A member of the RNA family "Mammalian CPEB3 ribozyme" from Alligator mississippiensis, 76 nucleotides long. From the family's description: The mammalian CPEB3 ribozyme is a self cleaving RNA located in the second intron of the CPEB3 gene which belongs to a family of genes regulating messenger RNA polyadenylation. Pairs were carried over by alignment from the consensus structure, which is taken from published work.
RNA sequence: GGUUGCAAGUACAAGGCCAUAGCAGAAACACUCAAGGCGUGGUUUGACAGAUUCCAACGAAUCUGUGAAUUCUGCU
Numbered sequence: 001g002g003u004u005g006c007a008a009g010u011a012c013a014a015g016g017c018c019a020u021a022g023c024a025g026a027a028a029c030a031c032u033c034a035a036g037g038c039g040u041g042g043u044u045u046g047a048c049a050g051a052u053u054c055c056a057a058c059g060a061a062u063c064u065g066u067g068a069a070u071u072c073u074g075c076u
Stems, first nucleotide, its partner, number of pairs: 013044001016043003021076007028040002048065007